RNA sequence: CUGUUUUUUCUGUUAUUUAUCCCGGAUAAUACUGCCCCGAUUUGCAUCGGGAAUUCAGGAGAGUGCAUGUAC
Number, nucleotide and partner (000 for none) at each position: 001c000002u000003g000004u000005u000006u000007u000008u000009u000010c000011u000012g000013u000014u000015a000016u000017u000018u000019a000020u000021c000022c000023c000024g000025g000026a000027u000028a000029a000030u000031a000032c000033u000034g000035c000036c051037c050038c049039g048040a047041u046042u000043u000044g000045c000046a041047u040048c039049g038050g037051g036052a000053a000054u000055u000056c000057a000058g000059g000060a000061g000062a000063g000064u000065g000066c000067a000068u000069g000070u000071a000072c000